[Rfam]
RNA sequence: CGUUGGGUUAAAACCCAACGCUAUGAUAAUUCGUCCCUUCGGGACU
Numbered sequence: 001c002g003u004u005g006g007g008u009u010a011a012a013a014c015c016c017a018a019c020g021c022u023a024u025g026a027u028a029a030u031u032c033g034u035c036c037c038u039u040c041g042g043g044a045c046u
Stems, first nucleotide, its partner, number of pairs: 001020008033045005
A member of the RNA family "Acido-Lenti-1 RNA" from Soonwooa buanensis, 46 nucleotides long. Rfam classes the family as a small RNA. It scores 50 bits against the family's covariance model.